[Rfam]
RNA sequence: ACCUGCUGCGGGCGGUCGCGCACACGACGCGCGCAGCACCAGACACACACCGUGCCACGGGAAGAACGAGGCACUUCAGGGCGUU
Numbered sequence: 001a002c003c004u005g006c007u008g009c010g011g012g013c014g015g016u017c018g019c020g021c022a023c024a025c026g027a028c029g030c031g032c033g034c035a036g037c038a039c040c041a042g043a044c045a046c047a048c049a050c051c052g053u054g055c056c057a058c059g060g061g062a063a064g065a066a067c068g069a070g071g072c073a074c075u076u077c078a079g080g081g082c083g084u085u
Stems, first nucleotide, its partner, number of pairs: 004038007012030003016027002052074005058068002
Notes:
The record is an 85-nucleotide sequence from Streptomyces albiflavescens, which matches "nrdJ RNA" in Rfam. Taxonomically the source falls in Streptomyces (Bacteria, Actinomycetota, Kitasatosporales, Streptomycetaceae). The family's consensus secondary structure is taken from published work. Rfam classes the family as a small RNA.